[Rfam]
RNA sequence: GCCGCGAAUUCGCGGCGCCGAGCGGGGGCAAUAAGGUGGUGCGGAUGCCUGGUCGUUUGCUCUUUGGCCUGGGCCUGUGGUUCGCUCUAUGCGGCCCGCCCGUUCCAAGUUGCGUAGCGUGUAUGGGGCGCCCUGGCGAAAGCUAGAGCGUCCCUGCACCUAGAGUGGCGGGUAUUGCGUGAGGCUGGUUUCACAGAGCAGCGAGUACCGCCCGCUUCCAACGGUGGAAGGAUUACGGGCCGCUGCAGCCCUGGCCCGCUUCCGGCCCAUGUGCCUUCCAUGGCAGACCCCCAUCUUU
Dot-bracket structure: ((((((....)))....((....)).)))...(((((((.(.(..(((.(((..((.....(.(.((((.(((((.(..(.(.(.(....((((((((.((.(((((.((((.(.((((((((..((((((.(((((....))))).)))))).)))))(....).(((((....(.(((....(((......)))....))).)..))))).))).)))))..)))))))....)))))))).)).)).).)))))......)))).).).))..)).).).))..)).))))))).
RNA: Plant signal recognition particle RNA